RNA sequence: GUCGGGGGUGAUGAGUUGCGCCUGCAGGUGGCGCUGGUCAGGCGUGCUGGCGGAGCGCCUGGUCUCCACUCGGACUCCUGACGACAAGCCCGAGUGCACAGGGGCCAUCUGACCUGCA
Number, nucleotide and partner (000 for none) at each position: 001g000002u000003c000004g117005g000006g115007g114008g113009u000010g000011a000012u000013g000014a000015g000016u000017u000018g000019c000020g000021c000022c000023u000024g000025c073026a000027g071028g069029u068030g067031g066032c000033g064034c000035u062036g000037g000038u000039c000040a060041g059042g058043c057044g056045u055046g000047c000048u000049g000050g000051c000052g000053g000054a000055g045056c044057g043058c042059c041060u040061g000062g035063u000064c033065u000066c031067c030068a029069c028070u000071c027072g000073g025074a000075c000076u000077c000078c000079u000080g000081a000082c000083g000084a000085c000086a000087a000088g000089c000090c000091c000092g000093a000094g000095u000096g000097c000098a000099c000100a000101g000102g000103g000104g000105c000106c000107a000108u000109c000110u000111g000112a000113c008114c007115u006116g000117c004118a000